Overview
The family of this 113-nucleotide RNA sequence from Clostridium thailandense is "SAM riboswitch aptamer (S box leader)". The literature on the family includes a 2013 paper in RNA by Daldrop and Lilley, "The plasticity of a structural motif in RNA: structural polymorphism of a kink turn as a function of its environment". The organism belongs to Clostridium, within Bacteria. A search with the family's covariance model found it, with a score of 91 bits. Gene Ontology term of the family: regulation of gene expression.

RNA sequence: UUCUUAUCGAGAGUGGUGGAGGGACUGGCCCUAUGAAACCCGACAACCGGCAUUCUGUAUGAAUGUAUCGGUGUCAAUUCCUGCAGAAUAAGUUCUAUUCUGGCAGAUAAGAA
Numbered sequence: 001u002u003c004u005u006a007u008c009g010a011g012a013g014u015g016g017u018g019g020a021g022g023g024a025c026u027g028g029c030c031c032u033a034u035g036a037a038a039c040c041c042g043a044c045a046a047c048c049g050g051c052a053u054u055c056u057g058u059a060u061g062a063a064u065g066u067a068u069c070g071g072u073g074u075c076a077a078u079u080c081c082u083g084c085a086g087a088a089u090a091a092g093u094u095c096u097a098u099u100c101u102g103g104c105a106g107a108u109a110a111g112a113a
Stems, first nucleotide, its partner, number of pairs: 001113008013041001015040003021031003025083001027081002042075004047071002050066005079105001084102006